The family of this 150-nucleotide sequence from Chenopodium quinoa is "small nucleolar RNA snoR135". A reference for the family is Chen and Wu (2009), "Mining small RNA sequencing data: a new approach to identify small nucleolar RNAs in Arabidopsis", Nucleic Acids Res. The organism belongs to Chenopodium, within Eukaryota. By type it is an H/ACA-box small nucleolar RNA.

Nucleotides: 150
Base pairs, nucleotide, nucleotide: 004067005066007064008063009062010061015044016043017042018041019040084143085142086141087140088139089138090137091136092135093134097131098130099129100128
Number, partner (000 for none) and nucleotide at each position: 001000a002000u003000a004067g005066c006000u007064g008063g009062g010061a011000u012000u013000g014000u015044g016043u017042g018041u019040a020000u021000c022000g023000g024000u025000a026000u027000u028000a029000u030000g031000u032000g033000g034000c035000a036000a037000u038000c039000u040019u041018g042017c043016g044015c045000u046000c047000u048000a049000u050000a051000a052000u053000g054000a055000a056000a057000u058000a059000a060000u061010u062009c063008c064007c065000c066005g067004c068000a069000a070000c071000a072000u073000c074000a075000u076000c077000a078000u079000c080000c081000a082000u083000u084143g085142g086141g087140a088139a089138g090137a091136u092135g093134g094000g095000c096000a097131g098130u099129u100128g101000a102000g103000u104000u105000u106000c107000u108000u109000c110000u111000c112000a113000u114000a115000u116000c117000u118000a119000u120000g121000g122000a123000c124000a125000u126000c127000u128100c129099a130098a131097u132000a133000a134093u135092c136091a137090u138089c139088u140087u141086c142085c143084c144000u145000a146000a147000a148000c149000u150000a